[Rfam]
RNA sequence: UACAAGCUGUAUUGUUCGUAUGACAUUAAGUUUUAACCUUUAAGCUGUAAAAGGGAGUUUAUUACGAAACGGAAAUGGCAUGCUGGAUUCCUUAUAGCAAUCCAGACAUACAGGAACGUUUUCCGCAAACACCCACUUUGAGGAGUGGUGGUUUAAAACUUUCUAUGACUAAGUACGGCAAACACGGCUUACAU
Numbered sequence: 001u002a003c004a005a006g007c008u009g010u011a012u013u014g015u016u017c018g019u020a021u022g023a024c025a026u027u028a029a030g031u032u033u034u035a036a037c038c039u040u041u042a043a044g045c046u047g048u049a050a051a052a053g054g055g056a057g058u059u060u061a062u063u064a065c066g067a068a069a070c071g072g073a074a075a076u077g078g079c080a081u082g083c084u085g086g087a088u089u090c091c092u093u094a095u096a097g098c099a100a101u102c103c104a105g106a107c108a109u110a111c112a113g114g115a116a117c118g119u120u121u122u123c124c125g126c127a128a129a130c131a132c133c134c135a136c137u138u139u140g141a142g143g144a145g146u147g148g149u150g151g152u153u154u155a156a157a158a159c160u161u162u163c164u165a166u167g168a169c170u171a172a173g174u175a176c177g178g179c180a181a182a183c184a185c186g187g188c189u190u191a192c193a194u
Stems, first nucleotide, its partner, number of pairs: 004190007012181004017177003029160004034155003037151002053134003057130004062125001066122006077111001083105007

The family of this 194-nucleotide RNA sequence from Sporosarcina sp. P19 is "6S / SsrS RNA". About the family: E. coli 6S RNA was the first non coding RNA to be sequenced, but its function was unknown until recently. It consists of 184 nucleotides that fold into an extended hairpin structure with a large single-stranded internal bulge. The 6S RNA specifically associates with RNA polymerase holoenzyme containing the sigma70 specificity factor. This interaction represses expression from a sigma70-dependent promoter during stationary phase. 6S RNA homologs have recently been identified in most bacterial genomes. Many Gram-positive species have two copies of 6S RNA. In Bacillus subtilis, both copies appear to interact with RNA polymerase holoenzyme containing the housekeeping sigma factor and be expressed during different stages of growth. In many proteobacteria, 6S RNA may be processed from a transcript encoding homologs of the E. coli YgfA protein which is a putative 5-formyltetrahydrofolate cycloligase activity.